[Rfam]
RNA sequence: AUUUAUAUUUAUAUAUAAAUUGAGCCUAUUAGAGGAAACUUUAAUAGUGAAUGCUCUCAAAUUCAGGGAAAUCUUUAAAUAAAAAAGACAAUCCUGAGCCAAUUUGCUUUAAAAAUUAUUUUUCUAGCAAAAGGUGCAGAGACUCGACGGGAGCUAUCCGCAAACAAAUUUUAAUUUGAUUUAAGGAUAAAGAGAGAGUCCAGCUUCUAAAAACUGAAAA
Number, nucleotide and partner (000 for none) at each position: 001a000002u023003u022004u000005a020006u019007a000008u000009u000010u000011a000012u000013a000014u000015a000016u000017a000018a000019a006020u005021u000022g003023a002024g000025c000026c000027u000028a000029u000030u000031a042032g041033a040034g000035g000036a000037a000038a000039c000040u033041u032042u031043a000044a000045u000046a000047g000048u000049g000050a000051a000052u000053g154054c153055u152056c151057u000058c149059a000060a000061a000062u000063u097064c096065a095066g094067g093068g092069a000070a000071a000072u088073c087074u086075u085076u084077a000078a000079a000080u000081a000082a000083a000084a076085a075086a074087g073088a072089c000090a000091a000092u068093c067094c066095u065096g064097a063098g135099c134100c000101a000102a000103u130104u129105u000106g000107c000108u000109u000110u000111a125112a000113a123114a122115a121116u000117u000118a000119u000120u000121u115122u114123u113124c000125u111126a000127g000128c000129a104130a103131a000132a000133g000134g099135u098136g000137c000138a000139g201140a000141g200142a199143c198144u197145c196146g000147a000148c000149g058150g000151g056152a055153g054154c053155u000156a000157u187158c186159c185160g000161c000162a182163a181164a180165c000166a000167a000168a000169u000170u000171u000172u000173a000174a000175u000176u000177u000178g000179a000180u164181u163182u162183a000184a000185g159186g158187a157188u000189a000190a000191a000192g000193a000194g000195a000196g145197a144198g143199u142200c141201c139202a000203g000204c000205u218206u217207c216208u000209a000210a000211a000212a000213a000214c000215u000216g207217a206218a205219a000220a000
Description
Shown here is a 220-nucleotide RNA sequence from Auxenochlorella protothecoides, a member of the family "Group I catalytic intron". The family's consensus secondary structure is taken from published work. Rfam describes the family as follows. Group I catalytic introns are large self-splicing ribozymes. Gene Ontology term of the family: Group I intron splicing. Taxonomically the source falls in Auxenochlorella (Eukaryota, Chlorophyta, Trebouxiophyceae, Chlorellales).